[Rfam]
RNA sequence: UUUCUAGCCAGGCUCCUGGCUGAAAUCCAGCUCUUUGCUGGAUUUCUCCAAAGCCUGGCUGGAAA
Numbered sequence: 001u002u003u004c005u006a007g008c009c010a011g012g013c014u015c016c017u018g019g020c021u022g023a024a025a026u027c028c029a030g031c032u033c034u035u036u037g038c039u040g041g042a043u044u045u046c047u048c049c050a051a052a053g054c055c056u057g058g059c060u061g062g063a064a065a
Stems, first nucleotide, its partner, number of pairs: 007059003011055004017050003022045003027041005
Dot-bracket structure: ......(((.((((..(((..(((..(((((.....))))).)))..))).)))).)))......
Notes
Rfam assigns this 65-nucleotide RNA from Mesocricetus auratus to the family "mir-344 microRNA precursor family". Taxonomically the source falls in Mesocricetus (Eukaryota, Deuterostomia, Euteleostomi, Cricetinae). The literature on the family includes a 2010 paper in Genes Dev by Chiang et al., "Mammalian microRNAs: experimental evaluation of novel and previously annotated genes". The family's consensus secondary structure was predicted with RNAalifold. Its family is annotated with RISC complex and miRNA-mediated post-transcriptional gene silencing in the Gene Ontology.